[Rfam]
RNA sequence: UACAGAGUAGAAAACUGAGCGUUAAGUGUCCGUCGGACGGGGAGUUGCCGUCGGAACGAAAAAGGCAGAAUCUUUGCGGUUCGGUUUUCGCAUCCCGCUGAA
Numbered sequence: 001u002a003c004a005g006a007g008u009a010g011a012a013a014a015c016u017g018a019g020c021g022u023u024a025a026g027u028g029u030c031c032g033u034c035g036g037a038c039g040g041g042g043a044g045u046u047g048c049c050g051u052c053g054g055a056a057c058g059a060a061a062a063a064g065g066c067a068g069a070a071u072c073u074u075u076g077c078g079g080u081u082c083g084g085u086u087u088u089c090g091c092a093u094c095c096c097g098c099u100g101a102a
Base pairs, nucleotide, nucleotide: 001102003100004099005098010089011088012087013086014085015084016083017082018081019080020078021077022076026057027056029055030054031053032052034050035049036048040095041094042093044091061075062074063073064072
RNA: THF (Tetrahydrofolate) riboswitch aptamer
Organism: Ruminococcus sp. CAG:57